[Rfam]
RNA: c-di-AMP riboswitch aptamer (ydaO/yuaA leader)
RNA sequence: ACGCGUAAAGCGCCGUAGGCAGGAGCGGGGGACCCAGGUAAGCGCCGGAACCGAUGGUCGAAGGACCGUCAGGACCGGCUUGGGGUGAAGUCGCGUGCUAGGACAUGCGGCCGGGCAACUCACUUGGCCCGAACCCGACAGCUCACCUCGUAGGCGUCGGUGAGGAGAAGU
Number, nucleotide and partner (000 for none) at each position: 001a000002c000003g000004c000005g000006u000007a000008a000009a000010g000011c156012g155013c154014c153015g000016u000017a000018g000019g000020c000021a000022g000023g000024a000025g151026c150027g149028g148029g147030g146031g000032a000033c000034c000035c082036a081037g080038g079039u078040a000041a000042g000043c000044g000045c000046c000047g000048g000049a000050a000051c000052c000053g000054a000055u000056g000057g000058u000059c000060g000061a000062a000063g000064g000065a000066c000067c000068g000069u000070c000071a000072g000073g000074a000075c000076c000077g000078g039079c038080u037081u036082g035083g136084g135085g134086u000087g000088a000089a000090g000091u110092c109093g108094c107095g106096u105097g000098c000099u000100a000101g000102g000103a000104c000105a096106u095107g094108c093109g092110g091111c000112c000113g130114g129115g128116c127117a000118a000119c000120u000121c000122a000123c000124u000125u000126g000127g116128c115129c114130c113131g000132a000133a000134c085135c084136c083137g000138a000139c000140a000141g000142c000143u000144c000145a000146c030147c029148u028149c027150g026151u025152a000153g014154g013155c012156g011157u000158c000159g000160g000161u000162g000163a000164g000165g000166a000167g000168a000169a000170g000171u000